Rfam assigns this 448-nucleotide RNA sequence from Vibrio sp. 10N.286.49.B3 to the family "cspA thermoregulator". The base pairs follow the family's consensus structure, which is taken from published work.
[Rfam]
RNA sequence: CUCGCUCUGUUGUUCGGGGUUAUUAAAUGUAACAUCAAGUGAAAGUAAAAUCUUAGAUACAUCUGCGUAAACCGUUUUUGUUUCCUUAGUUUCCUUAGUUUCAUCGUCAUUAAAUAAUUCGAUUCUUAGCACACUCCGCGUUUAACGCGAUAUUUUCAAGAAUUUUUUAUAGGAGACAUACUAUGUCUGCAAAAACUACUGGUUCAGUAAAAUGGUUUAACGAAGAGAAAGGUUUCGGUUUCAUUACUCAAGACAACGGCGGUGCUGACGUAUUCGUUCACUUCCGUGCUAUCGCUUCUGAAGGUUUCAAAACUCUUGCUGAAGGCCAAAAAGUGUCUUUUGAAGUAGAGCAAGGCCAAAAAGGUCUUCAAGCUGCAAACGUUGUAGCUCUUUAAUCAGAAGUUUAACUCUUCUUUGAAAAAGUCGACCUUAGUGUCGGCUUUUUUUU
Numbered sequence: 001c002u003c004g005c006u007c008u009g010u011u012g013u014u015c016g017g018g019g020u021u022a023u024u025a026a027a028u029g030u031a032a033c034a035u036c037a038a039g040u041g042a043a044a045g046u047a048a049a050a051u052c053u054u055a056g057a058u059a060c061a062u063c064u065g066c067g068u069a070a071a072c073c074g075u076u077u078u079u080g081u082u083u084c085c086u087u088a089g090u091u092u093c094c095u096u097a098g099u100u101u102c103a104u105c106g107u108c109a110u111u112a113a114a115u116a117a118u119u120c121g122a123u124u125c126u127u128a129g130c131a132c133a134c135u136c137c138g139c140g141u142u143u144a145a146c147g148c149g150a151u152a153u154u155u156u157c158a159a160g161a162a163u164u165u166u167u168u169a170u171a172g173g174a175g176a177c178a179u180a181c182u183a184u185g186u187c188u189g190c191a192a193a194a195a196c197u198a199c200u201g202g203u204u205c206a207g208u209a210a211a212a213u214g215g216u217u218u219a220a221c222g223a224a225g226a227g228a229a230a231g232g233u234u235u236c237g238g239u240u241u242c243a244u245u246a247c248u249c250a251a252g253a254c255a256a257c258g259g260c261g262g263u264g265c266u267g268a269c270g271u272a273u274u275c276g277u278u279c280a281c282u283u284c285c286g287u288g289c290u291a292u293c294g295c296u297u298c299u300g301a302a303g304g305u306u307u308c309a310a311a312a313c314u315c316u317u318g319c320u321g322a323a324g325g326c327c328a329a330a331a332a333g334u335g336u337c338u339u340u341u342g343a344a345g346u347a348g349a350g351c352a353a354g355g356c357c358a359a360a361a362a363g364g365u366c367u368u369c370a371a372g373c374u375g376c377a378a379a380c381g382u383u384g385u386a387g388c389u390c391u392u393u394a395a396u397c398a399g400a401a402g403u404u405u406a407a408c409u410c411u412u413c414u415u416u417g418a419a420a421a422a423g424u425c426g427a428c429c430u431u432a433g434u435g436u437c438g439g440c441u442u443u444u445u446u447u448u
Stems, first nucleotide, its partner, number of pairs: 004020006029247003045242001049240004053230002060227001062226003066222003069217001071216003077185001079183002082180001089177007098115003187202003254348001256346002267275002279335005287328002289325002293318002300313001353368003357363001370392003373387005398412002401409003418445011
Background
The source organism's lineage runs through Bacteria, Pseudomonadati, Gammaproteobacteria, Vibrionaceae and Vibrio. The literature on the family includes a 2010 paper in Mol Cell by Giuliodori et al., "The cspA mRNA is a thermosensor that modulates translation of the cold-shock protein CspA".